[Rfam]
RNA sequence: CCUUGUCUGGAUCGGGUUUCGCGGCAAACGGGCUGUACUGAUUCGUGAAAAAUCAGUUCGUUGUCGACGAAACCUGCACACUGCAAGG
Number, nucleotide and partner (000 for none) at each position: 001c088002c087003u086004u085005g084006u083007c000008u000009g000010g000011a000012u000013c076014g075015g074016g073017u072018u071019u070020c069021g068022c000023g000024g000025c000026a000027a000028a000029c000030g059031g058032g057033c056034u055035g000036u000037a000038c000039u000040g000041a000042u000043u000044c000045g000046u000047g000048a000049a000050a000051a000052a000053u000054c000055a034056g033057u032058u031059c030060g000061u000062u000063g000064u000065c000066g000067a000068c021069g020070a019071a018072a017073c016074c015075u014076g013077c000078a000079c000080a000081c000082u000083g006084c005085a004086a003087g002088g001
mir-981 microRNA precursor family: an 88-nucleotide RNA sequence from Culex quinquefasciatus. Its family is annotated with miRNA-mediated post-transcriptional gene silencing and RISC complex in the Gene Ontology. Rfam 15.1 lists 180 matches to the family in 170 species. Pairs were carried over by alignment from the consensus structure, which was predicted with RNAalifold. A reference for the family is Berezikov et al. (2010), "Evolutionary flux of canonical microRNAs and mirtrons in Drosophila", Nat Genet.